Nucleotides: 068
Stems, first nucleotide, its partner, number of pairs: 015063005023055001027051003030047003
Number, partner (000 for none) and nucleotide at each position: 001000a002000u003000g004000u005000g006000u007000g008000u009000a010000g011000g012000a013000g014000u015063g016062g017061u018060u019059u020000u021000a022000c023055u024000g025000a026000a027051u028050c029049a030047g031046u032045g033000g034000a035000a036000a037000c038000a039000a040000g041000g042000a043000u044000a045032c046031a047030c048000u049029u050028g051027a052000u053000u054000c055023a056000a057000u058000a059019a060018g061017a062016c063015c064000u065000u066000a067000a068000a
Shown here is a 68-nucleotide sequence, a member of the family "Cyano-1 RNA".
It is annotated as a small RNA.
Rfam's curators put it in the seed alignment.
The family's consensus secondary structure is taken from published work.